[Rfam]
RNA sequence: GCCUCCCGUGCCUACUGAACUGAAAGGCAGUCACUGUGUAAAAACUGGCUCAGUUCAGCAGGAACAGGAG
Number, nucleotide and partner (000 for none) at each position: 001g000002c000003c070004u069005c068006c067007c000008g065009u064010g000011c062012c061013u060014a000015c058016u057017g056018a055019a054020c053021u052022g051023a050024a000025a000026g000027g000028c047029a046030g045031u044032c000033a000034c000035u000036g000037u000038g000039u000040a000041a000042a000043a000044a031045c030046u029047g028048g000049c000050u023051c022052a021053g020054u019055u018056c017057a016058g015059c000060a013061g012062g011063a000064a009065c008066a000067g006068g005069a004070g003
mir-24 microRNA precursor family: a 70-nucleotide RNA from Geotrypetes seraphini.
About the family: This family represents the microRNA (miRNA) mir-24 family. miRNAs are transcribed as ~70nt precursors (modelled here) and subsequently processed by the Dicer enzyme to give a ~22nt product. In this case the mature sequence comes from the 3' arm of the precursor. The extents of the hairpin precursors are not generally known and are estimated based on hairpin prediction.
The literature on the family includes a 2001 paper in Science by Lagos-Quintana et al., "Identification of novel genes coding for small expressed RNAs".
The family has 63 seed sequences and 1,372 matches in Rfam 15.1.
The match comes from Rfam's covariance-model search (80 bits).
The base pairs follow the family's consensus structure, which was predicted with RNAalifold.